RNA sequence: UGGAAGUCUCAUACGUGUACAAACGCAUCGAUAUAUAAUUUGUACAUCACUUUACUUCCUAGAACAUUAUUGCUUUCUGAUGACCAUGGUUGGAUGAAGUAUUAGAUUAUGGACAGAUACGGGGCAAACACCU
Numbered sequence: 001u002g003g004a005a006g007u008c009u010c011a012u013a014c015g016u017g018u019a020c021a022a023a024c025g026c027a028u029c030g031a032u033a034u035a036u037a038a039u040u041u042g043u044a045c046a047u048c049a050c051u052u053u054a055c056u057u058c059c060u061a062g063a064a065c066a067u068u069a070u071u072g073c074u075u076u077c078u079g080a081u082g083a084c085c086a087u088g089g090u091u092g093g094a095u096g097a098a099g100u101a102u103u104a105g106a107u108u109a110u111g112g113a114c115a116g117a118u119a120c121g122g123g124g125c126a127a128a129c130a131c132c133u
Stems, first nucleotide, its partner, number of pairs: 002059006015047004022040002070127007084112003089107003
RNA: Small Cajal body specific RNA 8
Organism: Acanthoscelides obtectus